[Rfam]
RNA sequence: GAGACGGCUCACCCGGUGGUUCCCGGCCGGCGGCCCUGACUUCACUUCCCCGAUGUCAGGUCCACUCCGGAAGGGAACCUCCGGGUGAGGCGGACACAGC
Numbered sequence: 001g002a003g004a005c006g007g008c009u010c011a012c013c014c015g016g017u018g019g020u021u022c023c024c025g026g027c028c029g030g031c032g033g034c035c036c037u038g039a040c041u042u043c044a045c046u047u048c049c050c051c052g053a054u055g056u057c058a059g060g061u062c063c064a065c066u067c068c069g070g071a072a073g074g075g076a077a078c079c080u081c082c083g084g085g086u087g088a089g090g091c092g093g094a095c096a097c098a099g100c
Base pairs, nucleotide, nucleotide: 010087011086012085013084014083015082016081018079019078021076022075023074024073027070028069029068030067032063033062035060036059037058038057039056040055042053
This 100-nucleotide RNA sequence from Tessaracoccus lapidicaptus belongs to the Rfam family "mraW RNA". A search with the family's covariance model found it, with a score of 63 bits. The family's consensus secondary structure is taken from published work. Taxonomically the source falls in Tessaracoccus (Bacteria, Actinomycetes, Propionibacteriales, Propionibacteriaceae).